[Rfam]
Nucleotides: 154
Stems, first nucleotide, its partner, number of pairs: 003152005008146003017029003031133002033122002035066004061120002069098002102118005124136003
Number, partner (000 for none) and nucleotide at each position: 001000a002000g003152a004151c005150g006149u007148u008146c009145u010144c011000a012000g013000g014000g015000c016000g017029g018028g019027g020000u021000g022000a023000a024000a025000c026000u027019c028018c029017c030000c031133a032132c033122c034121g035066g036065c037064g038063g039000u040000a041000u042000c043000u044000g045000u046000g047000a048000c049000c050000c051000g052000a053000u054000c055000a056000c057000a058000g059000g060000a061120g062119c063038c064037c065036g066035c067000g068000a069098g070097c071000g072000c073000u074000u075000g076000a077000g078000g079000g080000c081000c082000a083000c084000g085000c086000c087000u088000u089000c090000a091000g092000g093000g094000u095000c096000a097070g098069c099000a100000g101000a102118c103117a104116u105115g106114g107000u108000g109000a110000g111000a112000u113000g114106c115105c116104a117103u118102g119062g120061c121034c122033g123000a124136c125135g126134g127000u128000c129000a130000c131000a132032g133031u134126c135125c136124g137000g138000a139000u140000g141000a142000a143000a144010g145009a146008g147000c148007a149006a150005c151004g152003u153000g154000u